The record is an 86-nucleotide RNA sequence from Brevibacillus fulvus, which matches "Glycine riboswitch aptamer" in Rfam. Rfam describes the family as follows. This family represents the bacterial glycine riboswitch. It scores 38 bits against the family's covariance model.
RNA sequence: UCUCUGGAGAGAGCUCAAUGAGCCACCAAAGGGGAAACUUGCUGAGCAAGGCUGGCAAGGUAACUCUCAGGUACCGAGGACAGAGA
Numbered sequence: 001u002c003u004c005u006g007g008a009g010a011g012a013g014c015u016c017a018a019u020g021a022g023c024c025a026c027c028a029a030a031g032g033g034g035a036a037a038c039u040u041g042c043u044g045a046g047c048a049a050g051g052c053u054g055g056c057a058a059g060g061u062a063a064c065u066c067u068c069a070g071g072u073a074c075c076g077a078g079g080a081c082a083g084a085g086a
Stems, first nucleotide, its partner, number of pairs: 001086006013023004025072003029067001032066003038059007